[Rfam]
RNA sequence: UGGUGCCCAGUGUGAGACUCGAGUACAAAGGGCCCAGUGAAGAUCACCACUCUGUUUUUGGUCAGCCAACAAAUUUUGUGUAGAAACAUCUUGCAUGGGAACCUGCCGCCACAACUAGAGAUCCUGGUAAGUUCGUGAUGAUCAUGAGACAGACGUUGAGUAGCCAUGAAUUAUUUGUGGAAGGGUUGAAAAGGCUUUAAAGACAUGAGAGAUAAAAGUUAAAAUACAUGAUUUGCUUGCAUUUUUUUUGAUUUUGUUAAAGAGAUUGCCUAU
Number, nucleotide and partner (000 for none) at each position: 001u000002g000003g000004u000005g000006c031007c030008c000009a000010g000011u000012g026013u025014g024015a000016g000017a000018c000019u000020c000021g000022a000023g000024u014025a013026c012027a000028a000029a000030g007031g006032g000033c000034c000035c000036a000037g047038u046039g000040a000041a000042g000043a000044u000045c000046a038047c037048c000049a000050c000051u000052c000053u000054g000055u000056u000057u000058u000059u000060g000061g000062u000063c000064a000065g000066c000067c000068a000069a000070c000071a000072a000073a000074u000075u000076u000077u000078g000079u000080g000081u000082a000083g000084a000085a000086a000087c000088a000089u120090c118091u117092u000093g000094c000095a000096u108097g107098g106099g000100a000101a000102c000103c000104u000105g000106c098107c097108g096109c000110c000111a000112c000113a000114a000115c000116u000117a091118g090119a000120g089121a000122u000123c000124c000125u000126g000127g000128u151129a000130a000131g000132u148133u147134c146135g145136u144137g143138a142139u000140g000141a000142u138143c137144a136145u135146g134147a133148g132149a000150c000151a128152g000153a000154c000155g000156u000157u199158g198159a197160g195161u194162a000163g000164c000165c000166a000167u000168g000169a000170a000171u000172u000173a000174u000175u000176u000177g000178u000179g000180g000181a000182a000183g000184g000185g000186u000187u000188g000189a000190a000191a000192a000193g000194g161195c160196u000197u159198u158199a157200a000201a000202g000203a000204c000205a000206u250207g249208a248209g247210a246211g243212a242213u241214a000215a000216a234217a233218g232219u231220u230221a229222a000223a000224a000225u000226a000227c000228a000229u221230g220231a219232u218233u217234u216235g000236c000237u000238u000239g000240c000241a213242u212243u211244u000245u000246u210247u209248u208249u207250g206251a000252u000253u000254u000255u000256g000257u000258u000259a000260a273261a000262g271263a000264g269265a000266u000267u000268g000269c264270c000271u262272a000273u260

This 273-nucleotide sequence from Mus musculus belongs to the Rfam family "Mason-Pfizer monkey virus packaging signal". It is annotated as a cis-regulatory element. Rfam links the family to the GO term viral genome packaging.